[Rfam]
RNA sequence: GAGACACCCUUAUGGGGCAGGACUUGCUUCAGUGGGGCUUACUGAGUCUGCCCCUUGAGUGUGUCUCU
Numbered sequence: 001g002a003g004a005c006a007c008c009c010u011u012a013u014g015g016g017g018c019a020g021g022a023c024u025u026g027c028u029u030c031a032g033u034g035g036g037g038c039u040u041a042c043u044g045a046g047u048c049u050g051c052c053c054c055u056u057g058a059g060u061g062u063g064u065c066u067c068u
Base pairs, nucleotide, nucleotide: 001067002066003065004064005063006062007061009059010058011057012056014054015053016052017051018050019049021048022047023046029045030044031043032042033041034040035039

mir-9229 microRNA precursor family: a 68-nucleotide sequence from Cnephaeus nilssonii. The family's consensus secondary structure was predicted with RNAalifold.